[Rfam]
RNA: Selenocysteine transfer RNA
Organism: Pusillibacter faecalis
RNA sequence: GGGAGUAGCUGGGUGCUGGUGUGCCCCCUGGUCUUCAAAACCAGUGUGGGCGGCGAGCGGCCGCCCGGGUGGGUUCGAUUCCCACAUACCCCC
Numbered sequence: 001g002g003g004a005g006u007a008g009c010u011g012g013g014u015g016c017u018g019g020u021g022u023g024c025c026c027c028c029u030g031g032u033c034u035u036c037a038a039a040a041c042c043a044g045u046g047u048g049g050g051c052g053g054c055g056a057g058c059g060g061c062c063g064c065c066c067g068g069g070u071g072g073g074u075u076c077g078a079u080u081c082c083c084a085c086a087u088a089c090c091c092c093c
Stems, first nucleotide, its partner, number of pairs: 001093003005089003008085001011026006028044005047067005070084004